[Rfam]
RNA: Small nucleolar RNA SNORA32
Organism: Otolemur garnettii
RNA sequence: UGGCCAAGACUCAGUGGACUUGGAAAAUAAAUUCUUAUUGCUGUGGACAUGACCAUAAAAAAACUUCCACUGGGUUUUCUAUCUGCUAUUUUGCUAGCACUCAGCCUACUGGGGACAUUU
Numbered sequence: 001u002g003g004c005c006a007a008g009a010c011u012c013a014g015u016g017g018a019c020u021u022g023g024a025a026a027a028u029a030a031a032u033u034c035u036u037a038u039u040g041c042u043g044u045g046g047a048c049a050u051g052a053c054c055a056u057a058a059a060a061a062a063a064c065u066u067c068c069a070c071u072g073g074g075u076u077u078u079c080u081a082u083c084u085g086c087u088a089u090u091u092u093g094c095u096a097g098c099a100c101u102c103a104g105c106c107u108a109c110u111g112g113g114g115a116c117a118u119u120u
Base pairs, nucleotide, nucleotide: 003053005051006050010046012045013044028040029039030038066113067112068111069110073106074105075104076103084099085098086097